[Rfam]
RNA sequence: GCAGUAGGCCGGUCUGUCGCUGAUACUUCUAUGUAUAAGAGGAAAGUCCGGGCAACACAGAGCAUCCUACUUCCUAACAGAAAGCUGUCCGCAAGGGCGGAGUAAUGCAGAAGAAAAUAACCGCCUUUCUCCGAAAAGGCAAGGGUGAGAAGGUAGGGUAAGAGCCUACCAGACGUAUAGUGAUAUACGGGCUGUGCAUCUUAGGAGUUGUAAGGUCAUGUAAACCGGCAUCAACGAGGGUUGCUCGCCCCACGUCGGAGGGUGGACCGCUAGAGCCUGUCGGUGACGGCAGGCGUAGAUAAAUGACAGACUCCCCUGUUCGCAGGGAGACAGAACCCGGCUUAUAGGCCAACUGCUUUC
Numbered sequence: 001g002c003a004g005u006a007g008g009c010c011g012g013u014c015u016g017u018c019g020c021u022g023a024u025a026c027u028u029c030u031a032u033g034u035a036u037a038a039g040a041g042g043a044a045a046g047u048c049c050g051g052g053c054a055a056c057a058c059a060g061a062g063c064a065u066c067c068u069a070c071u072u073c074c075u076a077a078c079a080g081a082a083a084g085c086u087g088u089c090c091g092c093a094a095g096g097g098c099g100g101a102g103u104a105a106u107g108c109a110g111a112a113g114a115a116a117a118u119a120a121c122c123g124c125c126u127u128u129c130u131c132c133g134a135a136a137a138g139g140c141a142a143g144g145g146u147g148a149g150a151a152g153g154u155a156g157g158g159u160a161a162g163a164g165c166c167u168a169c170c171a172g173a174c175g176u177a178u179a180g181u182g183a184u185a186u187a188c189g190g191g192c193u194g195u196g197c198a199u200c201u202u203a204g205g206a207g208u209u210g211u212a213a214g215g216u217c218a219u220g221u222a223a224a225c226c227g228g229c230a231u232c233a234a235c236g237a238g239g240g241u242u243g244c245u246c247g248c249c250c251c252a253c254g255u256c257g258g259a260g261g262g263u264g265g266a267c268c269g270c271u272a273g274a275g276c277c278u279g280u281c282g283g284u285g286a287c288g289g290c291a292g293g294c295g296u297a298g299a300u301a302a303a304u305g306a307c308a309g310a311c312u313c314c315c316c317u318g319u320u321c322g323c324a325g326g327g328a329g330a331c332a333g334a335a336c337c338c339g340g341c342u343u344a345u346a347g348g349c350c351a352a353c354u355g356c357u358u359u360c
Stems, first nucleotide, its partner, number of pairs: 001356005007350004011345001012311007020039002023036004044343003048340005053210004060246004065206005070084003074080001085100001087098004101201002105199005121144002123140006152170006172192001174189006214268004225258005238250004275294008
RNA: Bacterial RNase P class A
Organism: Phocaeicola coprophilus